[Rfam]
RNA: MIR168 microRNA precursor family
RNA sequence: GCAGUGGCCGCCUCAGAUUCGCUUGGUGCAGGUCGGGAACGAUUCAACUACGCGUCGACAUAAAAUCGAGCGGGUUGAAGUCGUAUCCCGCCUUGCACCAAUUGAACCGGAGCCGGUAUUGCCU
Numbered sequence: 001g002c003a004g005u006g007g008c009c010g011c012c013u014c015a016g017a018u019u020c021g022c023u024u025g026g027u028g029c030a031g032g033u034c035g036g037g038a039a040c041g042a043u044u045c046a047a048c049u050a051c052g053c054g055u056c057g058a059c060a061u062a063a064a065a066u067c068g069a070g071c072g073g074g075u076u077g078a079a080g081u082c083g084u085a086u087c088c089c090g091c092c093u094u095g096c097a098c099c100a101a102u103u104g105a106a107c108c109g110g111a112g113c114c115g116g117u118a119u120u121g122c123c124u
Stems, first nucleotide, its partner, number of pairs: 013111002018106003023101010034090005040083002